A member of the RNA family "c-di-GMP-I-GGC riboswitch aptamer" from Actinotalea ferrariae, 75 nucleotides long. For this family Rfam cites "Bioinformatic analysis of riboswitch structures uncovers variant classes with altered ligand specificity" (Weinberg et al., Proc Natl Acad Sci U S A, 2017). The base pairs follow the family's consensus structure, which is taken from published work. Its Rfam clan is "c-di-GMP_I riboswitch clan".
Nucleotides: 075
Base pairs, nucleotide, nucleotide: 001075003072004071011036012035016031017030018029019028020027021026034061040067041066042065044064045063046062048058049057
Number, partner (000 for none) and nucleotide at each position: 001075g002000a003072c004071g005000a006000c007000a008000a009000g010000g011036g012035c013000a014000a015000a016031c017030c018029c019028g020027u021026c022000g023000c024000g025000a026021g027020g028019c029018g030017g031016g032000g033000g034061c035012g036011c037000a038000a039000a040067g041066c042065c043000a044064c045063g046062g047000a048058g049057c050000u051000c052000a053000c054000g055000c056000a057049g058048c059000c060000a061034g062046c063045c064044g065042g066041g067040c068000c069000a070000c071004c072003g073000a074000a075001c